[Rfam]
RNA sequence: GAUAUCAAGGAACUUGUGAUUUAUGCCAUAACUAACAUAACCUCGACAUAUCACAGUUUACUUGCUGUCGC
Number, nucleotide and partner (000 for none) at each position: 001g069002a068003u067004a066005u000006c064007a063008a062009g061010g059011a058012a057013c056014u055015u000016g054017u053018g052019a051020u050021u000022u000023a049024u048025g047026c045027c000028a000029u000030a000031a000032c000033u000034a000035a000036c000037a000038u000039a000040a000041c000042c000043u000044c000045g026046a000047c025048a024049u023050a020051u019052c018053a017054c016055a014056g013057u012058u011059u010060a000061c009062u008063u007064g006065c000066u004067g003068u002069c001070g000071c000
RNA: mir-43 microRNA precursor family
Organism: Caenorhabditis brenneri